[Rfam]
RNA sequence: UAUCUCUGGACGCUGAAUCCCUGGGAAGGGAGCGGGGGACCCACCUUUUUGGGGUGAAUCCCGGCUUUUUGCAGCCGGGUAGGGUCAGGCUUUCGACCCGAACCCGUCAGCUAACCCCGUAAGCGUGGAAAGCCGCAGAG
Numbered sequence: 001u002a003u004c005u006c007u008g009g010a011c012g013c014u015g016a017a018u019c020c021c022u023g024g025g026a027a028g029g030g031a032g033c034g035g036g037g038g039a040c041c042c043a044c045c046u047u048u049u050u051g052g053g054g055u056g057a058a059u060c061c062c063g064g065c066u067u068u069u070u071g072c073a074g075c076c077g078g079g080u081a082g083g084g085u086c087a088g089g090c091u092u093u094c095g096a097c098c099c100g101a102a103c104c105c106g107u108c109a110g111c112u113a114a115c116c117c118c119g120u121a122a123g124c125g126u127g128g129a130a131a132g133c134c135g136c137a138g139a140g
Stems, first nucleotide, its partner, number of pairs: 011125004018031003032120006042051002052105003060079006082099004
Dot-bracket structure: ..........((((...(((........)))((((((....((......))(((.....((((((........))))))..((((..........))))...))).........)))))).))))...............
The family of this 140-nucleotide RNA from Ammonifex degensii is "c-di-AMP riboswitch aptamer (ydaO/yuaA leader)".
Its family is annotated with cyclic-di-AMP binding and regulation of gene expression in the Gene Ontology.
A search with the family's covariance model found it, with a score of 105 bits.
The organism belongs to Ammonifex degensii, within Bacteria.